The family of this 104-nucleotide RNA from Populus trichocarpa is "MIR474 microRNA precursor family".
Gene Ontology terms of the family: miRNA-mediated post-transcriptional gene silencing and RISC complex.
On this family, see Lu et al., Plant Cell 2005: "Novel and mechanical stress-responsive MicroRNAs in Populus trichocarpa that are absent from Arabidopsis".
[Rfam]
RNA sequence: CCCAAUAUUUAUGGGUCUGGUUACCGAGCCAGACCCAAUGUUAUUGGAUCCAGUUAGGCAGUUAGACUCAAGGCUAUUGGUAGUCGGACCCAAUAGCAUUGGAU
Numbered sequence: 001c002c003c004a005a006u007a008u009u010u011a012u013g014g015g016u017c018u019g020g021u022u023a024c025c026g027a028g029c030c031a032g033a034c035c036c037a038a039u040g041u042u043a044u045u046g047g048a049u050c051c052a053g054u055u056a057g058g059c060a061g062u063u064a065g066a067c068u069c070a071a072g073g074c075u076a077u078u079g080g081u082a083g084u085c086g087g088a089c090c091c092a093a094u095a096g097c098a099u100u101g102g103a104u
Stems, first nucleotide, its partner, number of pairs: 001102002004100003008096002012092015027075003032050002035047005055070001057068002
Dot-bracket structure: ((.(((.((..((((((((((((((((((..((.(((((...))))).))....(.((........)).)..)))..)))))))))))))))..)).)))))..

The family's consensus secondary structure was predicted with WAR. The match comes from Rfam's covariance-model search (51 bits). The organism belongs to Populus, within Eukaryota.